[Rfam]
RNA sequence: UUUGUGAGAACCAUUUGAAUCAAGUAAUGGAAAUGAUUCAAAUGGUUUU
Dot-bracket structure: ......((((((((((((((((...........))))))))))))))))
RNA: Plastid-ccsA-ndhD-2 3UTR RNA
Organism: Malus domestica